[Rfam]
RNA sequence: CCCGGGGGACGACCCCCGGAACCCCCGGUGCUGUGCCCACCCGGGGGACGACCCCC
Dot-bracket structure: .(((((((....))))))).......................(((((....)))))
The family of this 56-nucleotide RNA sequence from Streptomyces netropsis is "Guanidine-II riboswitch aptamer (mini-ykkC)". It scores 35 bits against the family's covariance model. Its family is annotated with regulation of gene expression in the Gene Ontology. The literature on the family includes a 2007 paper in Nucleic Acids Res by Weinberg et al., "Identification of 22 candidate structured RNAs in bacteria using the CMfinder comparative genomics pipeline". The family's consensus secondary structure is taken from published work.